[Rfam]
RNA sequence: UGAAUCUAUAGACAUAUCCCCUUUUAAUUAUGGCAGAGCCAUAACUAACUAUUCAGAAUCACCCGUUAUCGUAGGCAUGAUAACAUCACAUUUACAUGGAUGACUAAGAUAUAGCUCUUGAGAUUU
Numbered sequence: 001u002g003a004a005u006c007u008a009u010a011g012a013c014a015u016a017u018c019c020c021c022u023u024u025u026a027a028u029u030a031u032g033g034c035a036g037a038g039c040c041a042u043a044a045c046u047a048a049c050u051a052u053u054c055a056g057a058a059u060c061a062c063c064c065g066u067u068a069u070c071g072u073a074g075g076c077a078u079g080a081u082a083a084c085a086u087c088a089c090a091u092u093u094a095c096a097u098g099g100a101u102g103a104c105u106a107a108g109a110u111a112u113a114g115c116u117c118u119u120g121a122g123a124u125u126u
Stems, first nucleotide, its partner, number of pairs: 003126002006122002010118001012116001016112002021108003025103001027101003
The record is a 126-nucleotide RNA sequence from Populus tomentosa, which matches "MIR480 microRNA precursor family" in Rfam. A reference for the family is Lu et al. (2005), "Novel and mechanical stress-responsive MicroRNAs in Populus trichocarpa that are absent from Arabidopsis", Plant Cell. The source organism's lineage runs through Eukaryota, Streptophyta, Gunneridae, Saliceae and Populus. The match comes from Rfam's covariance-model search (69 bits). Pairs were carried over by alignment from the consensus structure, which was predicted with WAR.